[Rfam]
RNA: transfer-messenger RNA
Organism: Duncaniella freteri
RNA sequence: GGGGCUGACUGGCUUUGACAGCGUUUUGAGGUGGUGGGUAAGCAUGCAGAGUGAUGAUGCCUACACUCUAUAAUCAGAGACAUCAAAAAUUCAAAUGGCGAAAACAACUACGCUCUCGCUGCUUAAUCGAAGUACAGUAGAUUAACUUUAUCUCCGCAACAGUUGCAGAGACGAGACAUCACCCGAUUGUCCUUUUUCCGAGACGUAUCGAACCGGUGGUGCAGGUAAAUCGGAAAUAUGGCGAGGAAAGCCUCGAUAAUCGCCGAGAUCUUUAGAGGAUAAGGUUAAGAUUGGUCGUCUCUUGCCUGUCUUGACAUGAAAACCAAGAUGAGAAUAAGCAUGUAGAAAGCUCAUUGUUUCGGCGACUGGACGAGGGUUCAAACCCCUCCAGCUCCACUU
Numbered sequence: 001g002g003g004g005c006u007g008a009c010u011g012g013c014u015u016u017g018a019c020a021g022c023g024u025u026u027u028g029a030g031g032u033g034g035u036g037g038g039u040a041a042g043c044a045u046g047c048a049g050a051g052u053g054a055u056g057a058u059g060c061c062u063a064c065a066c067u068c069u070a071u072a073a074u075c076a077g078a079g080a081c082a083u084c085a086a087a088a089a090u091u092c093a094a095a096u097g098g099c100g101a102a103a104a105c106a107a108c109u110a111c112g113c114u115c116u117c118g119c120u121g122c123u124u125a126a127u128c129g130a131a132g133u134a135c136a137g138u139a140g141a142u143u144a145a146c147u148u149u150a151u152c153u154c155c156g157c158a159a160c161a162g163u164u165g166c167a168g169a170g171a172c173g174a175g176a177c178a179u180c181a182c183c184c185g186a187u188u189g190u191c192c193u194u195u196u197u198c199c200g201a202g203a204c205g206u207a208u209c210g211a212a213c214c215g216g217u218g219g220u221g222c223a224g225g226u227a228a229a230u231c232g233g234a235a236a237u238a239u240g241g242c243g244a245g246g247a248a249a250g251c252c253u254c255g256a257u258a259a260u261c262g263c264c265g266a267g268a269u270c271u272u273u274a275g276a277g278g279a280u281a282a283g284g285u286u287a288a289g290a291u292u293g294g295u296c297g298u299c300u301c302u303u304g305c306c307u308g309u310c311u312u313g314a315c316a317u318g319a320a321a322a323c324c325a326a327g328a329u330g331a332g333a334a335u336a337a338g339c340a341u342g343u344a345g346a347a348a349g350c351u352c353a354u355u356g357u358u359u360c361g362g363c364g365a366c367u368g369g370a371c372g373a374g375g376g377u378u379c380a381a382a383c384c385c386c387u388c389c390a391g392c393u394c395c396a397c398u399u
Stems, first nucleotide, its partner, number of pairs: 001395007019368003022364004030358010043342005048069005055085005061079001177221006184210004188205004195234003239265006247257001249280001251278004282317001284315008293306003298333003302328002372388005
Dot-bracket structure: (((((((...........(((((((....((((((((((...((((((((((..[[[[[.[...))))).........].]]]]]...........................................................................................((((((.((((((((...[[[....)))).)))).....))))))..........]]]....((((((..(.[.[[[[..)..)))))).........]]]].].(.((((((((.(((..[[[.[[))).)))))))).).........]]..]]]....)))))......))))))))))..)))).)))...(((((.......))))))))))))....